This 87-nucleotide RNA from Nitrosomonas sp. Nm166 belongs to the Rfam family "sRNA-Xcc1". The family's RNA type in Rfam is small RNA.
RNA sequence: GGCCGGGUGUGUGGCUAAUAAAAUAGCGGCUUGCCGCGAAUAUGCCCGCCGACCUUUUGCCGGUUUUGAGCACCUGGCCGCCUAUGG
Numbered sequence: 001g002g003c004c005g006g007g008u009g010u011g012u013g014g015c016u017a018a019u020a021a022a023a024u025a026g027c028g029g030c031u032u033g034c035c036g037c038g039a040a041u042a043u044g045c046c047c048g049c050c051g052a053c054c055u056u057u058u059g060c061c062g063g064u065u066u067u068g069a070g071c072a073c074c075u076g077g078c079c080g081c082c083u084a085u086g087g
Base pairs, nucleotide, nucleotide: 001079002078003077004076005075006074007073008072009071013046014045015044016042017041026037027036028035048064049063050062051061
Description
NCBI's taxonomy places the organism under Bacteria, Pseudomonadota, Betaproteobacteria, Nitrosomonadaceae, Nitrosomonas. The family's consensus secondary structure was predicted with RNAalifold. A reference for the family is Chen et al. (2011), "sRNA-Xcc1, an integron-encoded transposon- and plasmid-transferred trans-acting sRNA, is under the positive control of the key virulence regulators HrpG and HrpX of Xanthomonas campestris pathovar campestris", RNA Biol.